[Rfam]
RNA: Eukaryotic small subunit ribosomal RNA, nucleotides 1153 to 1647
RNA sequence: UGACGGAAGGGCACCACCAGGGGUGGAGCCUGCGGCUUAAUUUGACUCAACACGGGAAAACUCACCUGGCCCGGACACCGUGAGGAUUGACAGAUUGAGAGCUCUUUCUUGAUUCGGUGGUUGGUGGUGCAUGGCCGUUCUUAGUUGGUGGAGUGAUUUGUCUGGUUUAUUCCGAUAACGAGCGAGACUCUAGCCUACUAAAUAGUCGGCAAAUAACUCGUGAAAUGUUUGUGCGACUUCUUAGAGGGACAAGCGGUGUUCAGCCGCAUGAAGUUGAGCAAUAACAGGUCUGUGAUGCCCUUAGAUGUCCAGGGCUGCACGCGCGCUACACUGGAGGAAUCAACGUGCUAUGUCCAUUGUCGAAAGGCAUUGGUAACCCGUUGAAAAUCCUCCGUGCUCGGGAUAGGGAAUUGCAAUUAUUUCCCUUGAACGAGGAAUCCCUAGUAAGUGUGAGUCAUCAGCUCACGCUGAUUACGUCCCUGCCCUUUGUACACA
Numbered sequence: 001u002g003a004c005g006g007a008a009g010g011g012c013a014c015c016a017c018c019a020g021g022g023g024u025g026g027a028g029c030c031u032g033c034g035g036c037u038u039a040a041u042u043u044g045a046c047u048c049a050a051c052a053c054g055g056g057a058a059a060a061c062u063c064a065c066c067u068g069g070c071c072c073g074g075a076c077a078c079c080g081u082g083a084g085g086a087u088u089g090a091c092a093g094a095u096u097g098a099g100a101g102c103u104c105u106u107u108c109u110u111g112a113u114u115c116g117g118u119g120g121u122u123g124g125u126g127g128u129g130c131a132u133g134g135c136c137g138u139u140c141u142u143a144g145u146u147g148g149u150g151g152a153g154u155g156a157u158u159u160g161u162c163u164g165g166u167u168u169a170u171u172c173c174g175a176u177a178a179c180g181a182g183c184g185a186g187a188c189u190c191u192a193g194c195c196u197a198c199u200a201a202a203u204a205g206u207c208g209g210c211a212a213a214u215a216a217c218u219c220g221u222g223a224a225a226u227g228u229u230u231g232u233g234c235g236a237c238u239u240c241u242u243a244g245a246g247g248g249a250c251a252a253g254c255g256g257u258g259u260u261c262a263g264c265c266g267c268a269u270g271a272a273g274u275u276g277a278g279c280a281a282u283a284a285c286a287g288g289u290c291u292g293u294g295a296u297g298c299c300c301u302u303a304g305a306u307g308u309c310c311a312g313g314g315c316u317g318c319a320c321g322c323g324c325g326c327u328a329c330a331c332u333g334g335a336g337g338a339a340u341c342a343a344c345g346u347g348c349u350a351u352g353u354c355c356a357u358u359g360u361c362g363a364a365a366g367g368c369a370u371u372g373g374u375a376a377c378c379c380g381u382u383g384a385a386a387a388u389c390c391u392c393c394g395u396g397c398u399c400g401g402g403a404u405a406g407g408g409a410a411u412u413g414c415a416a417u418u419a420u421u422u423c424c425c426u427u428g429a430a431c432g433a434g435g436a437a438u439c440c441c442u443a444g445u446a447a448g449u450g451u452g453a454g455u456c457a458u459c460a461g462c463u464c465a466c467g468c469u470g471a472u473u474a475c476g477u478c479c480c481u482g483c484c485c486u487u488u489g490u491a492c493a494c495a
Base pairs, nucleotide, nucleotide: 001493002492003490004489005488007487008486009485010484011483012482013481016477017476020441021440022439023438024437025329027327028326029325031323032322033321034320035318036317041056042055043054044053065313066312067311068310069309071307076119077118078117079116080115089108090107092105093104094103123301124300126299127298128297129296132295133293134289135288136287137285138284139283144183145182146181148179149178150159151158152157163174164173165172189277190276192274194247195246196245198244199243200242201241204238205237206236207235250270251269253267254266255265256264257263333393334392335391336390337389338388347378354373355372358369359368360367361366400431405426406425407424408423409422410421447469448468449467450466451465452464453463454462